[Rfam]
RNA sequence: CGAUGAGGUAGAGGUCGCGAUUGUGAAGAGUAUCCCGGAGGAGGCGUUUGAAGCCGCUCAUGAAUCCCGGGGGAAAGGCACCUUCGCCGAAGUAAGACACUAGGCUUCAAUCGGGUGUCAUGCUGGGGCUGUUACCGAAAGGGACAGAACUGUCACGAUUUCCCGUCAUCCCGGCAAAUCGUGUUGAGCUAUCUUCAUG
Numbered sequence: 001c002g003a004u005g006a007g008g009u010a011g012a013g014g015u016c017g018c019g020a021u022u023g024u025g026a027a028g029a030g031u032a033u034c035c036c037g038g039a040g041g042a043g044g045c046g047u048u049u050g051a052a053g054c055c056g057c058u059c060a061u062g063a064a065u066c067c068c069g070g071g072g073g074a075a076a077g078g079c080a081c082c083u084u085c086g087c088c089g090a091a092g093u094a095a096g097a098c099a100c101u102a103g104g105c106u107u108c109a110a111u112c113g114g115g116u117g118u119c120a121u122g123c124u125g126g127g128g129c130u131g132u133u134a135c136c137g138a139a140a141g142g143g144a145c146a147g148a149a150c151u152g153u154c155a156c157g158a159u160u161u162c163c164c165g166u167c168a169u170c171c172c173g174g175c176a177a178a179u180c181g182u183g184u185u186g187a188g189c190u191a192u193c194u195u196c197a198u199g
Stems, first nucleotide, its partner, number of pairs: 006194006017087004023081003033072006039065001091124004096119006125151002129147005135141001154183008